[Rfam]
RNA sequence: AAAAAUGUUUUCUAGGGUUCCGCAGCUUUUUACUGGUCUGGUCCGAGAGAAAACUCACAGGCAAAGCCUGUGCCACGGAAGGAUAAAAGCCUGGGAGAU
Number, nucleotide and partner (000 for none) at each position: 001a000002a000003a000004a000005a000006u000007g054008u053009u052010u051011u050012c049013u000014a000015g044016g043017g000018u000019u000020c041021c040022g038023c035024a034025g033026c000027u000028u000029u000030u000031u000032a000033c025034u024035g023036g000037u000038c022039u000040g021041g020042u000043c016044c015045g000046a000047g000048a000049g012050a011051a010052a009053a008054c007055u000056c072057a071058c070059a069060g068061g067062c066063a000064a000065a000066g062067c061068c060069u059070g058071u057072g056073c000074c094075a000076c097077g000078g000079a000080a092081g091082g090083a000084u000085a000086a000087a000088a000089g000090c082091c081092u080093g000094g074095g000096a000097g076098a000099u000